Notes: This 112-nucleotide RNA sequence from Acidithiobacillus ferrooxidans belongs to the Rfam family "Rhizobiales sRNA Atu_At1". Rfam's curators put it in the seed alignment. The family has 33 seed sequences and 200 matches in Rfam 15.1. A reference for the family is Wilms et al. (2012), "Deep sequencing uncovers numerous small RNAs on all four replicons of the plant pathogen Agrobacterium tumefaciens", RNA Biol. Pairs were carried over by alignment from the consensus structure, which was predicted with CMfinder.
RNA sequence: GUGUGAGUGGGUGUCAACCGGACGCGAUGGGGAUCGAGAACUCGAGGAUUUUUCCGGUUUCUAAUCGAGACCUUAAGGAGUUGGUAUGCCUGACCCGUAACCCAACCCACUC
Numbered sequence: 001g002u003g004u005g006a007g008u009g010g011g012u013g014u015c016a017a018c019c020g021g022a023c024g025c026g027a028u029g030g031g032g033a034u035c036g037a038g039a040a041c042u043c044g045a046g047g048a049u050u051u052u053u054c055c056g057g058u059u060u061c062u063a064a065u066c067g068a069g070a071c072c073u074u075a076a077g078g079a080g081u082u083g084g085u086a087u088g089c090c091u092g093a094c095c096c097g098u099a100a101c102c103c104a105a106c107c108c109a110c111u112c
Base pairs, nucleotide, nucleotide: 006111007110008109009108012024013023014022015021026106028104029103030102031101035097036096038094041069042068043067044066045065070085071084072083